[Rfam]
RNA sequence: CCGAUGUGGAUAUCCAGGGAGGUCACUCUUCCCGGGCUCUGUGCAGGUGGCAUAGGGGAGUGCAGGGCUCUGCCCCAUGGUGUACGGUCCCUUUCUACAACACGGGAGGGGAAGCUGGGCCGUGAGUUUGCACCUGCAUAUUCCUGCGACUUCUCGGAACCUGUGGACGAUGGCUGAGGAGACAAACCAUGCAGUGAAAAAAU
Numbered sequence: 001c002c003g004a005u006g007u008g009g010a011u012a013u014c015c016a017g018g019g020a021g022g023u024c025a026c027u028c029u030u031c032c033c034g035g036g037c038u039c040u041g042u043g044c045a046g047g048u049g050g051c052a053u054a055g056g057g058g059a060g061u062g063c064a065g066g067g068c069u070c071u072g073c074c075c076c077a078u079g080g081u082g083u084a085c086g087g088u089c090c091c092u093u094u095c096u097a098c099a100a101c102a103c104g105g106g107a108g109g110g111g112a113a114g115c116u117g118g119g120c121c122g123u124g125a126g127u128u129u130g131c132a133c134c135u136g137c138a139u140a141u142u143c144c145u146g147c148g149a150c151u152u153c154u155c156g157g158a159a160c161c162u163g164u165g166g167a168c169g170a171u172g173g174c175u176g177a178g179g180a181g182a183c184a185a186a187c188c189a190u191g192c193a194g195u196g197a198a199a200a201a202a203u
Stems, first nucleotide, its partner, number of pairs: 001106002005102003008044001010042003014036002018029004047098004056091004060085001062083003065078001134194006150181006161166001
Shown here is a 203-nucleotide sequence from Jaculus jaculus, a member of the family "Small nucleolar RNA SNORA73 family". About the family: U17 (SNORA73A and SNORA73B) also known as E1 belongs to the H/ACA class of small nucleolar RNAs (snoRNAs). Vertebrate U17 is intron-encoded and ranges in length from 200-230 nucleotides, longer than most snoRNAs. It is one of the most abundant snoRNAs in human cells and is essential for the cleavage of pre-rRNA within the 5' external transcribed spacer (ETS). The organism belongs to Jaculus, within Eukaryota. For this family Rfam cites "5'ETS rRNA processing facilitated by four small RNAs: U14, E3, U17, and U3" (Enright et al., RNA, 1996). Rfam 15.1 lists 2,326 matches to the family in 660 species. Rfam links the family to the GO terms RNA processing and nucleolus. The base pairs follow the family's consensus structure, which is taken from published work.